Rfam assigns this 113-nucleotide sequence from Moschus moschiferus to the family "U5 spliceosomal RNA". It is annotated as a spliceosomal small nuclear RNA. The base pairs follow the family's consensus structure, which is taken from published work. From the family's description: U5 RNA is a component of both types of known spliceosome.
[Rfam]
RNA sequence: AUAAUCUGAUUUCUCUUCAGAUCAAAUAAAUCUUUCCCCUUUUAAUGAAGAUUUCCGUGGAGAGAAGCCAUUCCGAGACUCAAAGAGAACUAACUUCUUGUUACCAAAGGGGA
Numbered sequence: 001a002u003a004a005u006c007u008g009a010u011u012u013c014u015c016u017u018c019a020g021a022u023c024a025a026a027u028a029a030a031u032c033u034u035u036c037c038c039c040u041u042u043u044a045a046u047g048a049a050g051a052u053u054u055c056c057g058u059g060g061a062g063a064g065a066a067g068c069c070a071u072u073c074c075g076a077g078a079c080u081c082a083a084a085g086a087g088a089a090c091u092a093a094c095u096u097c098u099u100g101u102u103a104c105c106a107a108a109g110g111g112g113a
Stems, first nucleotide, its partner, number of pairs: 003080001005078002010067010028054008102113001104111002